RNA sequence: GUUCAUAUUUACAUCCGAGUUGUUGCAACCUAAAGACGUGUCCAUGGUGCAACAACCUAUUGGUGUCAAAGGAAACGAUGAUGCCACCCGUGCUUGGAAAGGAUGGAAAUGCUAUCUUUA
Number, nucleotide and partner (000 for none) at each position: 001g000002u000003u114004c000005a000006u111007a000008u000009u000010u000011a000012c105013a104014u103015c102016c101017g000018a000019g056020u055021u054022g053023u052024u051025g050026c049027a000028a048029c047030c046031u000032a000033a000034a000035g042036a041037c000038g000039u000040g000041u036042c035043c000044a000045u000046g030047g029048u028049g026050c025051a024052a023053c022054a021055a020056c019057c000058u000059a000060u000061u086062g085063g084064u083065g082066u081067c080068a079069a000070a000071g076072g000073a000074a000075a000076c071077g000078a000079u068080g067081a066082u065083g064084c063085c062086a061087c097088c096089c000090g000091u000092g000093c000094u000095u000096g088097g087098a000099a000100a000101g016102g015103a014104u013105g012106g000107a000108a000109a000110u000111g006112c000113u000114a003115u000116c000117u000118u000119u000120a000
A member of the RNA family "Molybdenum/Tungsten riboswitch aptamer (Moco RNA motif)" from Alkalibacter rhizosphaerae, 120 nucleotides long.
The organism belongs to Alkalibacter, within Bacteria.